[Rfam]
RNA: MIR1520 microRNA precursor family
Organism: Acer yangbiense
RNA sequence: AUCCCACUACAUGUGGUAUGUGAUGUGUCAAAUUGUGAGUGGAUACAUGGGGUAGGUGAGAUAAAUUAUAAUUAAUGUGUAUCCACUCACAAUUUGACACCUCACAUGCAACAUGU
Numbered sequence: 001a002u003c004c005c006a007c008u009a010c011a012u013g014u015g016g017u018a019u020g021u022g023a024u025g026u027g028u029c030a031a032a033u034u035g036u037g038a039g040u041g042g043a044u045a046c047a048u049g050g051g052g053u054a055g056g057u058g059a060g061a062u063a064a065a066u067u068a069u070a071a072u073u074a075a076u077g078u079g080u081a082u083c084c085a086c087u088c089a090c091a092a093u094u095u096g097a098c099a100c101c102u103c104a105c106a107u108g109c110a111a112c113a114u115g116u
Stems, first nucleotide, its partner, number of pairs: 020105004025100002029096003033092004038087003